[Rfam]
A member of the RNA family "Ribosomal protein L20 leader" from Paenibacillus sp. NEAU-GSW1, 147 nucleotides long. By type it is a cis-regulatory leader. Rfam describes the family as follows. This family is a putative r-protein leader autoregulatory structure found in B. subtilis and other low-GC Gram-positive bacteria. It is located in the 5' untranslated regions of mRNAs encoding initiation factor 3 followed by ribosomal proteins L35 and L20 (infC-rpmI-rplT). A Rho-independent transcription terminator structure that is probably involved in regulation is included at the 3' end. A search with the family's covariance model found it, with a score of 69 bits. For this family Rfam cites "Diverse mechanisms for regulating ribosomal protein synthesis in Escherichia coli" (Zengel and Lindahl, Prog Nucleic Acid Res Mol Biol, 1994). Rfam links the family to the GO term regulation of gene expression.
RNA sequence: ACGCACAAGAAGAAGCGCCCGCUUCUCACCUUUCGGCACAGGCUGACUGGUUCGCGAUAAUCGAUUGUUAUCGAACAUUUCUAUGUCUGAAAUGAUGAGAACGGUUAUGGAAUGCGGGUUCGCGCGAACCCGCAUUUUUUUUAUUUU
Numbered sequence: 001a002c003g004c005a006c007a008a009g010a011a012g013a014a015g016c017g018c019c020c021g022c023u024u025c026u027c028a029c030c031u032u033u034c035g036g037c038a039c040a041g042g043c044u045g046a047c048u049g050g051u052u053c054g055c056g057a058u059a060a061u062c063g064a065u066u067g068u069u070a071u072c073g074a075a076c077a078u079u080u081c082u083a084u085g086u087c088u089g090a091a092a093u094g095a096u097g098a099g100a101a102c103g104g105u106u107a108u109g110g111a112a113u114g115c116g117g118g119u120u121c122g123c124g125c126g127a128a129c130c131c132g133c134a135u136u137u138u139u140u141u142u143a144u145u146u147u
Stems, first nucleotide, its partner, number of pairs: 011026006028051003033046005113134009